[Rfam]
RNA sequence: CAAGUAGGACAAAUGAUCGCGGCUGCCAGACCGAAAGGCGGCAGACGAGGAAAGUCCGGGCUUCACAGGGCAGGAUGCCGGAUAACGUCCGGUGGAGGUGACUCCAAGGCAAGUGCAACAGAAAUAUACCGCCGGGAUCUCCCGGUAAGGGUGGAAAGGCAGCUUAAGAGACUACCGCCCUGCUGGUAACAGCAGGGGCACAUGUAAACCCCAUCCGAAGCAAGACCGAGCAGAGAACGAUGCAGCGGCCCGUUGCGUUCUCAGGUAGGUUGCUUGAGCCUGCUGGCAACAGCAGGUCUAGAUAGAUGAUCAUUCAACGACAUAACCCGGCUUACCGUCCUGCUUGCUUU
Numbered sequence: 001c002a003a004g005u006a007g008g009a010c011a012a013a014u015g016a017u018c019g020c021g022g023c024u025g026c027c028a029g030a031c032c033g034a035a036a037g038g039c040g041g042c043a044g045a046c047g048a049g050g051a052a053a054g055u056c057c058g059g060g061c062u063u064c065a066c067a068g069g070g071c072a073g074g075a076u077g078c079c080g081g082a083u084a085a086c087g088u089c090c091g092g093u094g095g096a097g098g099u100g101a102c103u104c105c106a107a108g109g110c111a112a113g114u115g116c117a118a119c120a121g122a123a124a125u126a127u128a129c130c131g132c133c134g135g136g137a138u139c140u141c142c143c144g145g146u147a148a149g150g151g152u153g154g155a156a157a158g159g160c161a162g163c164u165u166a167a168g169a170g171a172c173u174a175c176c177g178c179c180c181u182g183c184u185g186g187u188a189a190c191a192g193c194a195g196g197g198g199c200a201c202a203u204g205u206a207a208a209c210c211c212c213a214u215c216c217g218a219a220g221c222a223a224g225a226c227c228g229a230g231c232a233g234a235g236a237a238c239g240a241u242g243c244a245g246c247g248g249c250c251c252g253u254u255g256c257g258u259u260c261u262c263a264g265g266u267a268g269g270u271u272g273c274u275u276g277a278g279c280c281u282g283c284u285g286g287c288a289a290c291a292g293c294a295g296g297u298c299u300a301g302a303u304a305g306a307u308g309a310u311c312a313u314u315c316a317a318c319g320a321c322a323u324a325a326c327c328c329g330g331c332u333u334a335c336c337g338u339c340c341u342g343c344u345u346g347c348u349u350u
Stems, first nucleotide, its partner, number of pairs: 001346010012314007020047002023044005052333003056330005061220004068251004073216005078092005093107001094105004108211002113209002115205003129150002131146006158176002161173002177199001178197008224271004233262006242256005278297008
Description: The record is a 350-nucleotide sequence from Firmicutes bacterium CAG:194, which matches "Bacterial RNase P class A" in Rfam. Lineage of the source: Bacteria > Bacillati > Bacillota. Rfam classes the family as a ribozyme. A search with the family's covariance model found it, with a score of 305 bits.